[Rfam]
RNA sequence: CUCCCCGAAAUGCAUUUAGGUGCAGCGUUGGUAUAAGUUUUAUAGAGGUAGAGCUACUGAUUGGAUGCGGGGGCUUCACCGCCUACCAAUUCCUGACAAACUCCGAAUGCUAUAAAAUGAUAAUCAGCAGUGAGGGCAUGGGUGCUAAGGUCCAUGUCCGAGAGGGAAAGAACCCAGACCAUCAGCUAAGGUCCCCAAAUGUAUGCUAAGUUGACAAAACGCGGUUUGACUGCUUAGACAGCUAGGAUGUUGGCUUGGAAGCAGCCAUUCAUUUAAAGAGUGCGUAACAGCUCACUAGUCGAGCGGUCGAGCAUGGAUAAUAAUCGGGCAUAAGCAUACUACCGAAGCUAUGGAUUGUACUUAAGUACAGUGGUAGGGGAGCAUUCUAUCGACGCCGAAGCAUUACUUUGAGGUAAUGUGGAGUUUAUAGAAAAGAAAAU
Dot-bracket structure: ((((((....(((((....))))).(((((((...((((((((((.....(((....((...(((...((((((......)))).))...)))...))..)).).....)))))))))..).)))))).)...((((((((((......))))))))))....(((......)))...((((.(((...(((......(.((((((.............((..((((((((((.......(((((.(((..(((.........)))...)))(...)(...((......)).).)))))...)))))))))).))..................))))))))))...)))))))(((((((....)))))))....))))))(.((((((.(((......((((((((....))))))))...))).))))))..).....
Notes: This 440-nucleotide part of an RNA from Avrilella dinanensis belongs to the Rfam family "Bacterial large subunit ribosomal RNA". The base pairs follow the family's consensus structure, which is taken from published work. The match comes from Rfam's covariance-model search (2795 bits).